[Rfam]
RNA sequence: AGAAUAUAAGACCUCGACUCUUAACUUUUAACUGAAAAAGUUAAGAGUCGGUUCUUAAAUCUCUUAUUUAAGAGUCGAUUCUUAACUUUUUUCAGUUAAAAGUUAAGAAUCAGGUUCUUAUAUUCU
Numbered sequence: 001a002g003a004a005u006a007u008a009a010g011a012c013c014u015c016g017a018c019u020c021u022u023a024a025c026u027u028u029u030a031a032c033u034g035a036a037a038a039a040g041u042u043a044a045g046a047g048u049c050g051g052u053u054c055u056u057a058a059a060u061c062u063c064u065u066a067u068u069u070a071a072g073a074g075u076c077g078a079u080u081c082u083u084a085a086c087u088u089u090u091u092u093c094a095g096u097u098a099a100a101a102g103u104u105a106a107g108a109a110u111c112a113g114g115u116u117c118u119u120a121u122a123u124u125c126u
Base pairs, nucleotide, nucleotide: 001126002125003124004123005122006121007120008119009118010117011116013114014113016111017110019108020107021106022105023104024103025102026101027100028099029098030097031096032095033094034093035092036091037090038089039088041085042084043083044082045081046080047079

Shown here is a 126-nucleotide RNA sequence from Brassica napus, a member of the family "MIR9563 microRNA precursor family". The family's consensus secondary structure was predicted with RNAalifold. Taxonomically the source falls in Brassica (Eukaryota, Streptophyta, Euphyllophyta, Gunneridae).